The family of this 78-nucleotide RNA from Ophiophagus hannah is "mir-26 microRNA precursor family". For this family Rfam cites "Identification of novel genes coding for small expressed RNAs" (Lagos-Quintana et al., Science, 2001).
[Rfam]
RNA sequence: CAGCCUGGUUCAAGUAAUCCAGGAUAGGCUGUUACCAGGCAACACGGCCUAUUCUUGAUUACUUGUUUCAGGAGGCGG
Numbered sequence: 001c002a003g004c005c006u007g008g009u010u011c012a013a014g015u016a017a018u019c020c021a022g023g024a025u026a027g028g029c030u031g032u033u034a035c036c037a038g039g040c041a042a043c044a045c046g047g048c049c050u051a052u053u054c055u056u057g058a059u060u061a062c063u064u065g066u067u068u069c070a071g072g073a074g075g076c077g078g
Base pairs, nucleotide, nucleotide: 001075004072005071006070007069008068011065012064013063014062015061016060017059018058019057021055022054023053024052025051026050027049028048029047030046